[Rfam]
RNA sequence: GUCAACUACCCCCCUCUUAUAGAAGAGGAGGCUUGUAGGAAUAAUCCUACGAAGUCUUAGUUGUCUAGCCUAAGUGUUCACUCACUACGUUGGAUUGCAUGUAGAAACCCAAAAAUGAUACCCAAGUUUUUGGCUCUUUCGUGGCUCUGUAAAAGUUCUAAGGGCAAGGAACAGUCAACCACAUUGUGAAGGCUUUCCAACAUUGGCGAAGGGUAAAUAAC
Numbered sequence: 001g002u003c004a005a006c007u008a009c010c011c012c013c014c015u016c017u018u019a020u021a022g023a024a025g026a027g028g029a030g031g032c033u034u035g036u037a038g039g040a041a042u043a044a045u046c047c048u049a050c051g052a053a054g055u056c057u058u059a060g061u062u063g064u065c066u067a068g069c070c071u072a073a074g075u076g077u078u079c080a081c082u083c084a085c086u087a088c089g090u091u092g093g094a095u096u097g098c099a100u101g102u103a104g105a106a107a108c109c110c111a112a113a114a115a116u117g118a119u120a121c122c123c124a125a126g127u128u129u130u131u132g133g134c135u136c137u138u139u140c141g142u143g144g145c146u147c148u149g150u151a152a153a154a155g156u157u158c159u160a161a162g163g164g165c166a167a168g169g170a171a172c173a174g175u176c177a178a179c180c181a182c183a184u185u186g187u188g189a190a191g192g193c194u195u196u197c198c199a200a201c202a203u204u205g206g207c208g209a210a211g212g213g214u215a216a217a218u219a220a221c
Stems, first nucleotide, its partner, number of pairs: 001065001003063006010031002012028002016025002032054003068207003072203001073086004089201006097193002105139002109133008119215005141182004148177002153175001155172005

Shown here is a 221-nucleotide RNA sequence from Clostridium magnum, a member of the family "HNH endonuclease-associated RNA and ORF (HEARO) RNA".
By type it is a non-coding RNA gene.
Taxonomically the source falls in Clostridium magnum (Bacteria, Bacillati, Clostridia, Clostridium).
For this family Rfam cites "Exceptional structured noncoding RNAs revealed by bacterial metagenome analysis" (Weinberg et al., Nature, 2009).